[Rfam]
RNA sequence: GUUCUUACAAUGUCCGGUUAAAGUUAACGUACACUUAACCGGAUAUUGUAAGAACAG
Numbered sequence: 001g002u003u004c005u006u007a008c009a010a011u012g013u014c015c016g017g018u019u020a021a022a023g024u025u026a027a028c029g030u031a032c033a034c035u036u037a038a039c040c041g042g043a044u045a046u047u048g049u050a051a052g053a054a055c056a057g
Base pairs, nucleotide, nucleotide: 001055002054003053004052005051006050007049008048009047010046011045013043014042015041016040017039018038019037020036021035023032024031
About this RNA:
The record is a 57-nucleotide RNA from Acyrthosiphon pisum, which matches "mir-3015 microRNA precursor family" in Rfam. Pairs were carried over by alignment from the consensus structure, which was predicted with RNAalifold. NCBI's taxonomy places the organism under Eukaryota, Panarthropoda, Insecta, Dicondylia, Acyrthosiphon.